Shown here is a 47-nucleotide RNA sequence, a member of the family "chrB-b RNA".
[Rfam]
RNA sequence: UGGGGAUGCAGACUCCCCAUCAGACGGCCAUCCCGUCCAAGCUCUGC
Dot-bracket structure: ((((((.[[[[[.))))))...(((((.....))))).....]]]]]